[Rfam]
RNA sequence: GUUAUGGCUAGACUGGAGGGUUAGGGGUCCUCUGUAAGCACACACCCCCUUUGGUGCAGUUGAAGUCCAAGAGGCGGCUUUUUGAAGGGAUAUCAGCCUUUAAAACCAACAUAGAAACUUCGUCCUACAGGAUUAUUGGUGAGUUGGGUUUUACUGUAGGGUAAAACUUAUUUCUCUUUAAUUUAGGAAUGUGUCAGGCCCGGGAGGGAGCAGCUCUACUAAUAACAACUAAUGCUUGUAGAUUAACGGGGUGGAGUUGUGUUUUUUAGAUCACUUAUAUUCUGGAUUUUAGUCCACUUUUGGACAUGCCUUUUU
Number, nucleotide and partner (000 for none) at each position: 001g315002u000003u000004a312005u000006g310007g309008c308009u000010a000011g061012a060013c059014u058015g033016g032017a031018g030019g029020g028021u027022u000023a000024g000025g000026g000027g021028u020029c019030c018031u017032c016033u015034g000035u000036a000037a000038g057039c056040a055041c054042a000043c000044a000045c000046c000047c000048c000049c000050u000051u000052u000053g000054g041055u040056g039057c038058a014059g013060u012061u011062g000063a000064a000065g305066u304067c303068c302069a301070a300071g299072a298073g297074g000075c000076g294077g293078c292079u291080u000081u000082u000083u000084g000085a000086a000087g283088g282089g281090a280091u279092a278093u277094c000095a275096g274097c000098c269099u268100u000101u000102a265103a264104a263105a262106c261107c259108a258109a257110c256111a000112u254113a000114g000115a000116a000117a252118c251119u250120u249121c248122g247123u246124c000125c241126u240127a239128c238129a237130g236131g235132a233133u232134u231135a230136u228137u227138g226139g178140u000141g176142a175143g174144u000145u000146g169147g168148g167149u166150u165151u164152u163153a162154c161155u160156g000157u000158a000159g000160g155161g154162u153163a152164a151165a150166a149167c148168u147169u146170a000171u000172u000173u000174c143175u142176c141177u000178u139179u000180a000181a000182u000183u222184u221185a220186g219187g000188a000189a000190u000191g216192u000193g214194u213195c000196a000197g000198g000199c208200c207201c206202g000203g000204g000205a000206g201207g200208g199209a000210g000211c000212a000213g194214c193215u000216c191217u000218a000219c186220u185221a184222a183223u000224a000225a000226c138227a137228a136229c000230u135231a134232a133233u132234g000235c131236u130237u129238g128239u127240a126241g125242a000243u000244u000245a000246a123247c122248g121249g120250g119251g118252u117253g000254g112255a000256g110257u109258u108259g107260u000261g106262u105263u104264u103265u102266u000267u000268a099269g098270a000271u000272c000273a000274c096275u095276u000277a093278u092279a091280u090281u089282c088283u087284g000285g000286a000287u000288u000289u000290u000291a079292g078293u077294c076295c000296a000297c073298u072299u071300u070301u069302g068303g067304a066305c065306a000307u000308g008309c007310c006311u000312u004313u000314u000315u001